Shown here is a 210-nucleotide RNA sequence from Pseudohaemophilus paraphrohaemolyticus, a member of the family "Molybdenum/Tungsten riboswitch aptamer (Moco RNA motif)". It scores 54 bits against the family's covariance model. Its family is annotated with regulation of gene expression, molybdenum ion binding and tungstate binding in the Gene Ontology. The organism belongs to Pseudohaemophilus, within Bacteria.
RNA sequence: CAACAAAUCCGAUACCGAGCUGUUGUAGCUAAGUUUUGUAAGCGUGCGUGAAUUUUUCAAAUUCACACACUCUACAAAAUAUGCCAUUCCAGCCUGUUACAAGCGGUGGUUUUUCGUAAAACGUUUGCAAAAUCUCACCGCUUGCAACACAGGAUAGCAAAGAAAUGCACUAUCCCCUCGUGCUUAGAAAGGUGUCAUAUUUAACUUACU
Numbered sequence: 001c002a003a004c005a006a007a008u009c010c011g012a013u014a015c016c017g018a019g020c021u022g023u024u025g026u027a028g029c030u031a032a033g034u035u036u037u038g039u040a041a042g043c044g045u046g047c048g049u050g051a052a053u054u055u056u057u058c059a060a061a062u063u064c065a066c067a068c069a070c071u072c073u074a075c076a077a078a079a080u081a082u083g084c085c086a087u088u089c090c091a092g093c094c095u096g097u098u099a100c101a102a103g104c105g106g107u108g109g110u111u112u113u114u115c116g117u118a119a120a121a122c123g124u125u126u127g128c129a130a131a132a133u134c135u136c137a138c139c140g141c142u143u144g145c146a147a148c149a150c151a152g153g154a155u156a157g158c159a160a161a162g163a164a165a166u167g168c169a170c171u172a173u174c175c176c177c178u179c180g181u182g183c184u185u186a187g188a189a190a191g192g193u194g195u196c197a198u199a200u201u202u203a204a205c206u207u208a209c210u
Stems, first nucleotide, its partner, number of pairs: 006201001011196006019093004025087002028084002033080008096148003100144010152175006161166001177187002